[Rfam]
RNA sequence: AACGGGUAAUUAUACUGACACGGGCGAAGAGGAAUUUCCUCUCCGCCCGUGCAUUCAUCUAGGGGCAAAUCAAAAAAG
Numbered sequence: 001a002a003c004g005g006g007u008a009a010u011u012a013u014a015c016u017g018a019c020a021c022g023g024g025c026g027a028a029g030a031g032g033a034a035u036u037u038c039c040u041c042u043c044c045g046c047c048c049g050u051g052c053a054u055u056c057a058u059c060u061a062g063g064g065g066c067a068a069a070u071c072a073a074a075a076a077a078g
Stems, first nucleotide, its partner, number of pairs: 003017003019051008028042004
Rfam assigns this 78-nucleotide RNA from Escherichia fergusonii to the family "tpke11". The source organism's lineage runs through Bacteria, Gammaproteobacteria, Enterobacterales, Enterobacteriaceae and Escherichia fergusonii. Rfam links the family to the GO term response to temperature stimulus. Rfam's curators write: In Yersinia located in ICR upstream dnaJ (chaperone)gene.